A member of the RNA family "Vibrio RNA AS9" from Shewanella cyperi, 101 nucleotides long. By type it is an antisense RNA. Identified by direct cloning an parallel sequencing experiments with 5S/tRNA depletion. Confirmed by Northern blot. On this family, see Liu et al., Nucleic Acids Res 2009: "Experimental discovery of sRNAs in Vibrio cholerae by direct cloning, 5S/tRNA depletion and parallel sequencing".

[Rfam]
RNA sequence: CUGGCAACGGGCCUUGGUCAUGGUCUGACAGAUGAGGCCACGGCCAUAGGUGGCCAUGAAGUUGAUGGCCUCGGGGGUCACCAGCUCAGCAGCCAUAAUCA
Numbered sequence: 001c002u003g004g005c006a007a008c009g010g011g012c013c014u015u016g017g018u019c020a021u022g023g024u025c026u027g028a029c030a031g032a033u034g035a036g037g038c039c040a041c042g043g044c045c046a047u048a049g050g051u052g053g054c055c056a057u058g059a060a061g062u063u064g065a066u067g068g069c070c071u072c073g074g075g076g077g078u079c080a081c082c083a084g085c086u087c088a089g090c091a092g093c094c095a096u097a098a099u100c101a
Base pairs, nucleotide, nucleotide: 003055004054005053007051008050010025011024012023013022015020032047033046034045036044038042063101064100065099066098068093069092072089074087075085